[Rfam]
RNA sequence: UCAUAACGAAAAUAAACAGAUCUGUGUUUCGCGAUCCUGGCCAGUUUGUUUUUACAAGCUGUGAUCAGUUGAUUGCUGAACAGUUCGACGACAAAGGAGCCAUUCAUACAGGGUUUUUAAUUCUGGCAUGGUGUCGAUUUCCUGUCGACAGAUCUGAGAUCGAUGUACAGCUCUCAACACCCUCUGGCUUUGAGCUCCCUUUUUCACGAUUGGUGAGCUCGGUUGGAGGCUUGAGUCGCUGUCGGCGUCAUAUUCCCACUCCCUUUACCGAUUUUUUUGGCCGUCGGCUGAUGAGGUUAGGGAAAAACCAUGACAAGCCAACAUUC
Numbered sequence: 001u002c003a004u005a006a007c008g009a010a011a012a013u014a015a016a017c018a019g020a021u022c023u024g025u026g027u028u029u030c031g032c033g034a035u036c037c038u039g040g041c042c043a044g045u046u047u048g049u050u051u052u053u054a055c056a057a058g059c060u061g062u063g064a065u066c067a068g069u070u071g072a073u074u075g076c077u078g079a080a081c082a083g084u085u086c087g088a089c090g091a092c093a094a095a096g097g098a099g100c101c102a103u104u105c106a107u108a109c110a111g112g113g114u115u116u117u118u119a120a121u122u123c124u125g126g127c128a129u130g131g132u133g134u135c136g137a138u139u140u141c142c143u144g145u146c147g148a149c150a151g152a153u154c155u156g157a158g159a160u161c162g163a164u165g166u167a168c169a170g171c172u173c174u175c176a177a178c179a180c181c182c183u184c185u186g187g188c189u190u191u192g193a194g195c196u197c198c199c200u201u202u203u204u205c206a207c208g209a210u211u212g213g214u215g216a217g218c219u220c221g222g223u224u225g226g227a228g229g230c231u232u233g234a235g236u237c238g239c240u241g242u243c244g245g246c247g248u249c250a251u252a253u254u255c256c257c258a259c260u261c262c263c264u265u266u267a268c269c270g271a272u273u274u275u276u277u278u279g280g281c282c283g284u285c286g287g288c289u290g291a292u293g294a295g296g297u298u299a300g301g302g303a304a305a306a307a308c309c310a311u312g313a314c315a316a317g318c319c320a321a322c323a324u325u326c
Stems, first nucleotide, its partner, number of pairs: 018155008026081004031076001033074004037068004042063002046057004089147005096135002099132005168238001173235005186224004192220006198213002244319003247314005260303005267297003279289004

Annotation
A member of the RNA family "A. fumigatus sRNA Afu_309" from Talaromyces stipitatus, 326 nucleotides long. For this family Rfam cites "Small ncRNA transcriptome analysis from Aspergillus fumigatus suggests a novel mechanism for regulation of protein synthesis" (Jochl et al., Nucleic Acids Res, 2008).